[Rfam]
RNA sequence: ACCAGAAGAGCGAAGCCUAAAAGCGCCACGUCCUGUGGCAACGGCUUCGUGACCUACAUCGUGUAGG
Numbered sequence: 001a002c003c004a005g006a007a008g009a010g011c012g013a014a015g016c017c018u019a020a021a022a023g024c025g026c027c028a029c030g031u032c033c034u035g036u037g038g039c040a041a042c043g044g045c046u047u048c049g050u051g052a053c054c055u056a057c058a059u060c061g062u063g064u065a066g067g
Stems, first nucleotide, its partner, number of pairs: 011049007025039005053067005
Notes
This 67-nucleotide RNA from Bacillus sp. HNG belongs to the Rfam family "Bacillaceae-1 RNA". Taxonomically the source falls in Bacillus (Bacteria, Bacillota, Bacilli, Bacillaceae). Rfam classes the family as a small RNA. It scores 74 bits against the family's covariance model.